[Rfam]
RNA sequence: AAUUCAUAACAGUCUAAUCUCAAGAAAUUGAGAACGGAGGACCCAUUUUUUUGGGGUUAAUUCUGCAAAUGCAGAAGGGAUGUGAUACUCUUUCGCCAUCCUACCCGUCAGCUAACUUCGUCGGCUAAAGCGAAGGAGGUC
Numbered sequence: 001a002a003u004u005c006a007u008a009a010c011a012g013u014c015u016a017a018u019c020u021c022a023a024g025a026a027a028u029u030g031a032g033a034a035c036g037g038a039g040g041a042c043c044c045a046u047u048u049u050u051u052u053g054g055g056g057u058u059a060a061u062u063c064u065g066c067a068a069a070u071g072c073a074g075a076a077g078g079g080a081u082g083u084g085a086u087a088c089u090c091u092u093u094c095g096c097c098a099u100c101c102u103a104c105c106c107g108u109c110a111g112c113u114a115a116c117u118u119c120g121u122c123g124g125c126u127a128a129a130g131c132g133a134a135g136g137a138g139g140u141c
Base pairs, nucleotide, nucleotide: 011126012125013124014123018033019032020031021030022029023028034121035120036119037118038117039116044053045052054106055105056104062075063074064073065072078101079100080099081098
Background:
Shown here is a 141-nucleotide sequence from Metabacillus sediminilitoris, a member of the family "c-di-AMP riboswitch aptamer (ydaO/yuaA leader)". It scores 78 bits against the family's covariance model. From the family's description: This family represents a conserved RNA structure found upstream of the ydaO and yuaA genes in Bacillus subtilis and related genes in other bacteria. Lineage of the source: Bacteria > Bacillati > Bacilli > Caryophanales > Metabacillus.